[Rfam]
Rfam assigns this 153-nucleotide sequence from Butyrivibrio sp. XB500-5 to the family "Clostridiales-1 RNA". Taxonomically the source falls in Butyrivibrio (Bacteria, Bacillati, Lachnospirales, Lachnospiraceae). The family's consensus secondary structure is taken from published work. The family's RNA type in Rfam is small RNA.
RNA sequence: UGAUAUAGGUGUCACAAAGUCGAAAAUGCGUUCAUGUUUACAUGAUAAGCAUUUUGAAUUUGUGACCCGAACAAACAUGAGGAAGAAGCAUGAUAAUGCGAAUUCCGAAUGUUUGCAGGAUUGCGAGAACAAAGUGGAGCAAUCCGUAUAUCA
Numbered sequence: 001u002g003a004u005a006u007a008g009g010u011g012u013c014a015c016a017a018a019g020u021c022g023a024a025a026a027u028g029c030g031u032u033c034a035u036g037u038u039u040a041c042a043u044g045a046u047a048a049g050c051a052u053u054u055u056g057a058a059u060u061u062g063u064g065a066c067c068c069g070a071a072c073a074a075a076c077a078u079g080a081g082g083a084a085g086a087a088g089c090a091u092g093a094u095a096a097u098g099c100g101a102a103u104u105c106c107g108a109a110u111g112u113u114u115g116c117a118g119g120a121u122u123g124c125g126a127g128a129a130c131a132a133a134g135u136g137g138a139g140c141a142a143u144c145c146g147u148a149u150a151u152c153a
Stems, first nucleotide, its partner, number of pairs: 001153007011066003016061003020057002023055007031047001032045005072115007081106004088099004118145007129135002